[Rfam]
RNA sequence: GUUCUCCUGGCGUAUCCUGUUGCCGCAGAUGAUCCCUCCCUCAUCCUGCGUGCGAUGCGCCCUCCUGCCCCGCUUGUCCCUGUGACAGGCGGGGCUUUUU
Numbered sequence: 001g002u003u004c005u006c007c008u009g010g011c012g013u014a015u016c017c018u019g020u021u022g023c024c025g026c027a028g029a030u031g032a033u034c035c036c037u038c039c040c041u042c043a044u045c046c047u048g049c050g051u052g053c054g055a056u057g058c059g060c061c062c063u064c065c066u067g068c069c070c071c072g073c074u075u076g077u078c079c080c081u082g083u084g085a086c087a088g089g090c091g092g093g094g095c096u097u098u099u100u
Stems, first nucleotide, its partner, number of pairs: 009061008025049004029044003067095009077085002

A member of the RNA family "Rhizobiales sRNA Atu_C7" from Rhizobium sp. Leaf371, 100 nucleotides long. Pairs were carried over by alignment from the consensus structure, which was predicted with WAR. A search with the family's covariance model found it, with a score of 47 bits. A reference for the family is Wilms et al. (2012), "Deep sequencing uncovers numerous small RNAs on all four replicons of the plant pathogen Agrobacterium tumefaciens", RNA Biol.